A member of the RNA family "ZMP/ZTP riboswitch aptamer (pfl RNA motif)" from Massilia sp. Leaf139, 106 nucleotides long. The base pairs follow the family's consensus structure, which is taken from published work.

RNA sequence: UAUGUCUCACGUAACUGGCGAAAACUGUCACGCAGCGCGUGACGGGAAAGGUGGACACCCACCGGGGAACGUGAGAUUUCAUCCGCCGUUCGCCUGGGCAGCCGAC
Numbered sequence: 001u002a003u004g005u006c007u008c009a010c011g012u013a014a015c016u017g018g019c020g021a022a023a024a025c026u027g028u029c030a031c032g033c034a035g036c037g038c039g040u041g042a043c044g045g046g047a048a049a050g051g052u053g054g055a056c057a058c059c060c061a062c063c064g065g066g067g068a069a070c071g072u073g074a075g076a077u078u079u080c081a082u083c084c085g086c087c088g089u090u091c092g093c094c095u096g097g098g099c100a101g102c103c104g105a106c
Base pairs, nucleotide, nucleotide: 004077005076006075007074008073009072010071011070012069015066016065017094018093019092020091021090051062052061053060054059083101085099086098087097
A reference for the family is Jones and Ferre-D'Amare (2015), "Recognition of the bacterial alarmone ZMP through long-distance association of two RNA subdomains", Nat Struct Mol Biol.